This 161-nucleotide RNA from Clostridium sp. USBA 49 belongs to the Rfam family "glmS glucosamine-6-phosphate activated ribozyme aptamer".
Rfam describes the family as follows. This entry contains a glucosamine-6-phosphate activated ribozyme that is found in the mRNA for GlmS. GlmS is an enzyme that uses fructose-6-phosphate and glutamine to generate glucosamine-6-phosphate.
Pairs were carried over by alignment from the consensus structure, which is taken from published work.
The organism belongs to Clostridium, within Bacteria.
It scores 123 bits against the family's covariance model.
Nucleotides: 161
Base pairs, nucleotide, nucleotide: 020047021046022045023044024043025042026041027040029039056087057086058085059084060083065076066075067074068073088103089102090101091100092099108151110149111148112147113146120137121136122135123134124133125132126131
Number, partner (000 for none) and nucleotide at each position: 001000a002000u003000u004000u005000a006000a007000a008000u009000u010000a011000a012000a013000g014000c015000g016000c017000c018000a019000g020047a021046a022045c023044u024043u025042a026041a027040g028000a029039a030000u031000g032000u033000a034000a035000u036000a037000a038000a039029u040027c041026u042025u043024a044023a045022g046021u047020u048000g049000a050000c051000g052000a053000g054000g055000a056087u057086g058085g059084g060083a061000a062000g063000u064000a065076u066075c067074g068073a069000g070000a071000u072000u073068u074067c075066g076065g077000c078000g079000g080000a081000u082000g083060u084059c085058c086057c087056a088103c089102g090101g091100u092099a093000u094000u095000g096000c097000a098000c099092u100091a101090u102089c103088g104000u105000u106000a107000a108151a109000a110149g111148c112147u113146g114000a115000u116000a117000a118000a119000c120137c121136c122135a123134a124133g125132g126131a127000g128000u129000g130000a131126u132125u133124c134123u135122u136121g137120g138000a139000a140000c141000a142000a143000c144000a145000u146113c147112a148111g149110c150000c151108u152000a153000u154000g155000u156000g157000c158000u159000u160000a161000a